The record is a 266-nucleotide sequence from Halonatronomonas betaini, which matches "Bacterial large signal recognition particle RNA" in Rfam.
About the family: The signal recognition particle (SRP) is a universally conserved ribonucleoprotein involved in the co-translational targeting of proteins to membranes.
Taxonomically the source falls in Halonatronomonas (Bacteria, Bacillota, Halanaerobiales, Halarsenatibacteraceae).
RNA sequence: CCGUACUAGAUGGGGUGGUAGCGGUGCCCUGUAACCUGCAAGCCGCUAUAGCAGGAUCGAAGGCCGUGCUGAGGGCUUCUCCUUUGGGGGUCUGGCCCUGAUAAGUGGUGUUGACAAUUGGGUCUCACGCAAUGAAGCUUUGCGAACCCCGUCAGGUCCGGGAGGAAGCAGCGGUAAGCAAAUGUCUUCAUGUGCCGUGAGGGUACCUGGUUCGAGCUAACUGUCAGGGUAACGCCUUGGAGGAGAUGUUCGAAGCCGGUGUACGG
Numbered sequence: 001c002c003g004u005a006c007u008a009g010a011u012g013g014g015g016u017g018g019u020a021g022c023g024g025u026g027c028c029c030u031g032u033a034a035c036c037u038g039c040a041a042g043c044c045g046c047u048a049u050a051g052c053a054g055g056a057u058c059g060a061a062g063g064c065c066g067u068g069c070u071g072a073g074g075g076c077u078u079c080u081c082c083u084u085u086g087g088g089g090g091u092c093u094g095g096c097c098c099u100g101a102u103a104a105g106u107g108g109u110g111u112u113g114a115c116a117a118u119u120g121g122g123u124c125u126c127a128c129g130c131a132a133u134g135a136a137g138c139u140u141u142g143c144g145a146a147c148c149c150c151g152u153c154a155g156g157u158c159c160g161g162g163a164g165g166a167a168g169c170a171g172c173g174g175u176a177a178g179c180a181a182a183u184g185u186c187u188u189c190a191u192g193u194g195c196c197g198u199g200a201g202g203g204u205a206c207c208u209g210g211u212u213c214g215a216g217c218u219a220a221c222u223g224u225c226a227g228g229g230u231a232a233c234g235c236c237u238u239g240g241a242g243g244a245g246a247u248g249u250u251c252g253a254a255g256c257c258g259g260u261g262u263a264c265g266g
Stems, first nucleotide, its partner, number of pairs: 001266006009058003012030006019023001035055005064259003068256003073251004080244010093231002097228006105221002107218003116212008124201006130192002133190005139182005149174004157166003